[Rfam]
The family of this 294-nucleotide RNA from Sclerotinia borealis is "Fungal signal recognition particle RNA". The source organism's lineage runs through Eukaryota, Dikarya, leotiomyceta, sordariomyceta and Sclerotinia borealis. Its Rfam clan is "SRP clan". Rfam 15.1 lists 748 matches to the family in 741 species. For this family Rfam cites "Towards the structure of the mammalian signal recognition particle" (Wild et al., Curr Opin Struct Biol, 2002). The family's RNA type in Rfam is non-coding RNA gene.
RNA sequence: CGACUGUAACGGUCAUAAGGUUAAGGCGAGCUCACGUUCCCAGAUCCUUCACUCCAAAAGUAUCAAACUAACGAUUUAUCGAGAGUUUGAAGCUACCAACAGUGCCCAGUCCGAACAUUACGGUGAUAGCCCACUCGUGUAGGAAACUCACGAUGCUGCGGUUGUCUUAAGCAAUGAAGAUAAUUUCUUGAGGGAGGCCUCACUCUGCAGAGAGAUCUUCGCCGUGAUGUGGCGGUAUUGGAUUACAUUCGUUGUGUGGUUUGGAGAGAGGAUUUGGGUUGGGUUUCAACUUUU
Numbered sequence: 001c002g003a004c005u006g007u008a009a010c011g012g013u014c015a016u017a018a019g020g021u022u023a024a025g026g027c028g029a030g031c032u033c034a035c036g037u038u039c040c041c042a043g044a045u046c047c048u049u050c051a052c053u054c055c056a057a058a059a060g061u062a063u064c065a066a067a068c069u070a071a072c073g074a075u076u077u078a079u080c081g082a083g084a085g086u087u088u089g090a091a092g093c094u095a096c097c098a099a100c101a102g103u104g105c106c107c108a109g110u111c112c113g114a115a116c117a118u119u120a121c122g123g124u125g126a127u128a129g130c131c132c133a134c135u136c137g138u139g140u141a142g143g144a145a146a147c148u149c150a151c152g153a154u155g156c157u158g159c160g161g162u163u164g165u166c167u168u169a170a171g172c173a174a175u176g177a178a179g180a181u182a183a184u185u186u187c188u189u190g191a192g193g194g195a196g197g198c199c200u201c202a203c204u205c206u207g208c209a210g211a212g213a214g215a216u217c218u219u220c221g222c223c224g225u226g227a228u229g230u231g232g233c234g235g236u237a238u239u240g241g242a243u244u245a246c247a248u249u250c251g252u253u254g255u256g257u258g259g260u261u262u263g264g265a266g267a268g269a270g271g272a273u274u275u276g277g278g279u280u281g282g283g284u285u286u287c288a289a290c291u292u293u294u
Base pairs, nucleotide, nucleotide: 002014003013004012018292019291020290021289022288024286025285034284035283037281040278041277044273045272046271047270049269050268052266053265054264055263056262057261072081073080074079094258095257096256097254098253099252100251102248103247104246106241107240108239109238110237111235112234113233115230116229117228118227119226120225121224122223123222125163126162127161129159130158132155133154135153136152137151138150139149141148142147167171175221176220177219178218179217180216181215185214186213187212188211189210194205195204196203